[Rfam]
RNA sequence: AUAUACACUGAGUGGCCAGAUUAAUAUGAUCUCUGAACGCAUAUUCAUCUGGCCACUCAGUGUACAU
Numbered sequence: 001a002u003a004u005a006c007a008c009u010g011a012g013u014g015g016c017c018a019g020a021u022u023a024a025u026a027u028g029a030u031c032u033c034u035g036a037a038c039g040c041a042u043a044u045u046c047a048u049c050u051g052g053c054c055a056c057u058c059a060g061u062g063u064a065c066a067u
Base pairs, nucleotide, nucleotide: 004064005063006062007061008060009059010058011057012056013055014054015053016052017051019049020048021047023045024044025043026042027041028040
RNA: mir-9256 microRNA precursor family
Organism: Cnephaeus nilssonii